The record is a 128-nucleotide sequence from Gadus morhua, which matches "Small nucleolar RNA SNORA71" in Rfam. The organism belongs to Gadus, within Eukaryota. A search with the family's covariance model found it, with a score of 62 bits. The family's consensus secondary structure was predicted with PFOLD. Rfam describes the family as follows. The members of this family belong to the H/ACA class of snoRNAs which bind a number of proteins (including dyskerin, Gar1p and Nop10p) to form snoRNP complexes. This class of snoRNAs are thought to guide the sites of modification of uridines to pseudouridines by forming direct base pairing interactions with substrate RNAs. This family includes U71 (SNORA71), ACA39 (SNORA39) and ACA60 (SNORA60). U71 and ACA60 are predicted to guide the pseudouridylation of U406 and U1004 in 18S rRNA respectively. There is currently no target RNA identified for ACA39. Rfam links the family to the GO terms nucleolus and RNA processing. Rfam 15.1 lists 1,805 matches to the family in 606 species.
RNA sequence: UAAUGCAUUGAAAGUGGCCAUGGCUGGUCUGUAGCCACGAUCAUUGAUAGUACAGGUACAUAAUGCUUGGAGCCUUUCCCGUGUUUGAAGGAUUAAUAAUUCCUACCAGACCCUGUUGCUUCAAAACA
Number, nucleotide and partner (000 for none) at each position: 001u000002a000003a000004u054005g053006c000007a051008u050009u049010g000011a000012a000013a045014g044015u043016g042017g041018c000019c039020a000021u000022g036023g035024c034025u033026g000027g000028u000029c000030u000031g000032u000033a025034g024035c023036c022037a000038c000039g019040a000041u017042c016043a015044u014045u013046g000047a000048u000049a009050g008051u007052a000053c005054a004055g000056g000057u000058a000059c000060a000061u000062a000063a000064u000065g000066c000067u124068u123069g122070g121071a120072g119073c118074c000075u000076u000077u000078c000079c000080c000081g000082u000083g111084u110085u109086u108087g107088a000089a104090g103091g102092a101093u000094u000095a000096a000097u000098a000099a000100u000101u092102c091103c090104u089105a000106c000107c087108a086109g085110a084111c083112c000113c000114u000115g000116u000117u000118g073119c072120u071121u070122c069123a068124a067125a000126a000127c000128a000